[Rfam]
Notes
The record is a 75-nucleotide RNA sequence from Arenaria interpres, which matches "ctgf/hcs24 CAESAR" in Rfam. The base pairs follow the family's consensus structure, which is taken from published work. It scores 65 bits against the family's covariance model. NCBI's taxonomy places the organism under Eukaryota, Eumetazoa, Deuterostomia, Neoaves, Arenaria. From the family's description: The 3' UTR of human connective tissue growth factor/hypertrophic chondrocyte specific 24 (ctgf/hcs24) mRNA has been shown to repress ctgf gene expression. Reference identified a minimal RNA element, predicted to form a stable secondary structure, which acts as a post-transcriptional cis-acting element of structure-anchored repression (CAESAR), probably through direct interactions with as yet unknown nuclear factors. Rfam classes the family as a cis-regulatory element. The family has 9 seed sequences and 518 matches in Rfam 15.1. Gene Ontology term of the family: negative regulation of gene expression.
RNA sequence: ACGGAGACAUGGCGUAAAGCCCAGAAGGAGAGGCUUAACUAGAUUCUCAACUUGAACUGAUUUGCAUCUCAUUUU
Numbered sequence: 001a002c003g004g005a006g007a008c009a010u011g012g013c014g015u016a017a018a019g020c021c022c023a024g025a026a027g028g029a030g031a032g033g034c035u036u037a038a039c040u041a042g043a044u045u046c047u048c049a050a051c052u053u054g055a056a057c058u059g060a061u062u063u064g065c066a067u068c069u070c071a072u073u074u075u
Stems, first nucleotide, its partner, number of pairs: 004070004010023001011021003028065001030063002